[Rfam]
RNA sequence: GUUUUGUGAAAGACACAGGUAGUGAGAUAGUGUAUGGUAAACAUCUCGCUACUUUGGUCUCUCUCCAUAGC
Numbered sequence: 001g002u003u004u005u006g007u008g009a010a011a012g013a014c015a016c017a018g019g020u021a022g023u024g025a026g027a028u029a030g031u032g033u034a035u036g037g038u039a040a041a042c043a044u045c046u047c048g049c050u051a052c053u054u055u056g057g058u059c060u061c062u063c064u065c066c067a068u069a070g071c
Stems, first nucleotide, its partner, number of pairs: 008063002011060003014056002017054003021050008